RNA sequence: CAAUGCAAUAGAGGUCGCGAGAAUCACGAAGCUUAGUGAGUGUCCAAACACAUUGAACUAAGUCAUUCAGGAGGAUCGCCGAAGUAAUAUUAUUUUUGGAGAUAAUAUUAUUGGGGCAUAGAUUAAUAGUCUAUGAACUGUCUUAACGAUUUUUCGUUAAGGAGCGCUAUGAUUUUG
Numbered sequence: 001c002a003a004u005g006c007a008a009u010a011g012a013g014g015u016c017g018c019g020a021g022a023a024u025c026a027c028g029a030a031g032c033u034u035a036g037u038g039a040g041u042g043u044c045c046a047a048a049c050a051c052a053u054u055g056a057a058c059u060a061a062g063u064c065a066u067u068c069a070g071g072a073g074g075a076u077c078g079c080c081g082a083a084g085u086a087a088u089a090u091u092a093u094u095u096u097u098g099g100a101g102a103u104a105a106u107a108u109u110a111u112u113g114g115g116g117c118a119u120a121g122a123u124u125a126a127u128a129g130u131c132u133a134u135g136a137a138c139u140g141u142c143u144u145a146a147c148g149a150u151u152u153u154u155c156g157u158u159a160a161g162g163a164g165c166g167c168u169a170u171g172a173u174u175u176u177g
Base pairs, nucleotide, nucleotide: 008170009169010168011167017079018078019077020076024072025071031063032062033061034060035059036058037057083112084111085110086109087108088107089106090105091104092103093102094101113139114138117135118134119133120132121131122130123129141162142161143160144159145158146157147156
Dot-bracket structure: .......((((.....((((...((.....(((((((...................))))))).......))...))))...((((((((((((......))))))))))))((..(((((((.....)))))))..)).(((((((........)))))))....)))).......